The record is an 80-nucleotide RNA from Astyanax mexicanus, which matches "mir-203 microRNA precursor family" in Rfam. For this family Rfam cites "Vertebrate microRNA genes" (Lim et al., Science, 2003).
RNA sequence: GUCUCUCUGAUGCAGUGGUUCUCAACAGUUCAACAGUUCUCUCUCACAAUUGUGAAAUGUUUAGGACCACUUGAUCAGGC
Number, nucleotide and partner (000 for none) at each position: 001g000002u000003c000004u000005c000006u000007c000008u000009g000010a000011u000012g000013c000014a071015g070016u069017g068018g067019u066020u000021c064022u063023c000024a061025a060026c059027a058028g000029u056030u055031c054032a053033a000034c000035a000036g000037u000038u000039c000040u000041c000042u000043c000044u000045c000046a000047c000048a000049a000050u000051u000052g000053u032054g031055a030056a029057a000058u027059g026060u025061u024062u000063a022064g021065g000066a019067c018068c017069a016070c015071u014072u000073g000074a000075u000076c000077a000078g000079g000080c000

The match comes from Rfam's covariance-model search (94 bits). NCBI's taxonomy places the organism under Eukaryota, Actinopterygii, Actinopteri, Acestrorhamphidae, Astyanax. The family's consensus secondary structure was predicted with RNAalifold.